[Rfam]
RNA: small nucleolar RNA snoR114
RNA sequence: AAGCAGUGAGGAAAAGCCCGAGUGCUGGUGGGUCCAGCACGUUCUCCUGAUAUUACGGUUGAAUUUGCAACUUCUGAGCUU
Number, nucleotide and partner (000 for none) at each position: 001a081002a080003g079004c078005a000006g000007u000008g000009a000010g000011g000012a000013a000014a000015a000016g000017c000018c000019c000020g000021a000022g000023u000024g000025c000026u000027g000028g000029u000030g000031g000032g000033u000034c000035c000036a000037g000038c000039a000040c000041g000042u000043u000044c000045u000046c000047c000048u000049g000050a000051u000052a000053u000054u000055a000056c000057g000058g000059u000060u000061g000062a000063a000064u000065u000066u000067g000068c000069a000070a000071c000072u000073u000074c000075u000076g000077a000078g004079c003080u002081u001